[Rfam]
RNA sequence: ACAGAAAAAGGCAAACCUUUUGAAAAAUAGGGACGCAAAGUUUCGGGUCUAAAGUAUGGUAAAUGCCUGCUAUGACGGCUGGGCUGCCUGGA
Numbered sequence: 001a002c003a004g005a006a007a008a009a010g011g012c013a014a015a016c017c018u019u020u021u022g023a024a025a026a027a028u029a030g031g032g033a034c035g036c037a038a039a040g041u042u043u044c045g046g047g048u049c050u051a052a053a054g055u056a057u058g059g060u061a062a063a064u065g066c067c068u069g070c071u072a073u074g075a076c077g078g079c080u081g082g083g084c085u086g087c088c089u090g091g092a
Stems, first nucleotide, its partner, number of pairs: 003089002011036002016031003020027002034078001039085004044081003047076003
Dot-bracket structure: ..((......((...(((.((....)).)))..[))..((((.((((((........................))).])))))))..))...
Overview:
A member of the RNA family "c-di-GMP-I-GGC riboswitch aptamer" from Bacillus sp. cl95, 92 nucleotides long. The family's consensus secondary structure is taken from published work.